Rfam assigns this 110-nucleotide sequence from Drosophila melanogaster to the family "Potassium channel RNA editing signal".
This family represents a group of sequences related to the human potassium channel Kv1.1 hairpin element which directs the efficient modification of an adenosine to inosine by an adenosine deaminase acting on RNA (ADAR). The ADAR modification causes an isoleucine/valine recoding event which lies in the ion-conducting pore of the potassium channel. It is thought that this editing event targets the process of fast inactivation and allows a more rapid recovery from inactivation at negative potentials.
For this family Rfam cites "Control of human potassium channel inactivation by editing of a small mRNA hairpin" (Bhalla et al., Nat Struct Mol Biol, 2004).
A search with the family's covariance model found it, with a score of 70 bits.
Pairs were carried over by alignment from the consensus structure, which is taken from published work.
Rfam links the family to the GO term adenosine to inosine editing.

RNA sequence: UUGAUUGAUGGUACAGACCCGUCGGCGUUUGGGGCAAGAUUGUGGGAUCACUUUGUGCCAUUGCUGGCGUGCUGACCAUCGCACUGCCGGUGCCGGUCAUCGUCAGCAAU
Numbered sequence: 001u002u003g004a005u006u007g008a009u010g011g012u013a014c015a016g017a018c019c020c021g022u023c024g025g026c027g028u029u030u031g032g033g034g035c036a037a038g039a040u041u042g043u044g045g046g047a048u049c050a051c052u053u054u055g056u057g058c059c060a061u062u063g064c065u066g067g068c069g070u071g072c073u074g075a076c077c078a079u080c081g082c083a084c085u086g087c088c089g090g091u092g093c094c095g096g097u098c099a100u101c102g103u104c105a106g107c108a109a110u
Stems, first nucleotide, its partner, number of pairs: 002109001005106001007104005016098004021093002025091001033073004045059002